[Rfam]
RNA: 6S / SsrS RNA
Organism: Marilutibacter penaei
RNA sequence: CGUCCUCUGCUGUGGACGACGGCGUACGCAAACAUUCGCCUUGUCCCUUAAUUGCGACCGCGGGGGCGCAACGGGUACCCGGAGUGCAGGUCCGCCAUGCAGCGGAAAGCCCGACGGUUUCCAAGCGUCCCCACUUGAACCCCGGGUUCAAGGUCGUUUCGUACGCAUCGCCAUCGGCGGAGGACUU
Dot-bracket structure: .((((((((((((((.(((..................(((.((..((..............(((.((((....((.(.((.....((...(((((......)))))..)).....)).).))..)))).)))............))..)).))).............))))))).))))))))))..